[Rfam]
RNA sequence: UACGGCACCGGCUCUUCCCCCCGGAGCCGGACCGUGAGACGGCCCCCGCCUCUCCCCCCUGGCGGGGGCCGUCGCUU
Dot-bracket structure: .((((..(((((((.........))))))).))))..(((((((((((((..........)))))))))))))....
Numbered sequence: 001u002a003c004g005g006c007a008c009c010g011g012c013u014c015u016u017c018c019c020c021c022c023g024g025a026g027c028c029g030g031a032c033c034g035u036g037a038g039a040c041g042g043c044c045c046c047c048g049c050c051u052c053u054c055c056c057c058c059c060u061g062g063c064g065g066g067g068g069c070c071g072u073c074g075c076u077u
Stems, first nucleotide, its partner, number of pairs: 002035004008030007038073013

This 77-nucleotide RNA from Thermobifida halotolerans belongs to the Rfam family "6C RNA". It scores 66 bits against the family's covariance model. Lineage of the source: Bacteria > Actinomycetota > Streptosporangiales > Nocardiopsidaceae > Thermobifida.